[Rfam]
RNA: Streptomyces sRNA 4677
Nucleotides: 228
Base pairs, nucleotide, nucleotide: 007208008207009206010205017073077092078091079090080089082087107136108135109134110133165200166199167198168197169196171194172193173192175188176187177186178185211225212224213223214222
Number, partner (000 for none) and nucleotide at each position: 001000u002000g003000a004000c005000c006000c007208g008207g009206u010205g011000g012000c013000c014000c015000c016000c017073g018000a019000c020000c021000c022000c023000g024000g025000a026000a027000g028000a029000c030000c031000a032000a033000a034000g035000a036000a037000c038000c039000g040000g041000g042000g043000a044000a045000a046000g047000a048000a049000c050000c051000g052000a053000a054000c055000c056000c057000g058000c059000c060000c061000c062000c063000a064000c065000c066000g067000c068000c069000c070000c071000c072000g073017u074000c075000g076000a077092u078091c079090a080089c081000c082087c083000g084000c085000c086000g087082g088000a089080g090079u091078g092077a093000a094000u095000a096000u097000g098000c099000c100000c101000a102000a103000c104000g105000c106000a107136a108135c109134u110133g111000g112000c113000g114000c115000g116000g117000c118000a119000c120000a121000g122000c123000a124000g125000u126000u127000g128000u129000c130000g131000u132000g133110c134109a135108g136107u137000g138000u139000c140000g141000g142000c143000g144000a145000c146000g147000a148000c149000c150000a151000c152000c153000c154000g155000g156000a157000c158000a159000u160000g161000c162000a163000u164000c165200g166199g167198c168197c169196c170000u171194c172193g173192c174000c175188g176187g177186g178185a179000c180000u181000g182000g183000c184000a185178u186177c187176c188175c189000a190000g191000u192173g193172c194171g195000a196169g197168g198167g199166c200165c201000u202000g203000a204000u205010c206009a207008c208007c209000a210000a211225g212224g213223a214222a215000a216000a217000g218000c219000a220000a221000c222214u223213u224212c225211c226000u227000c228000g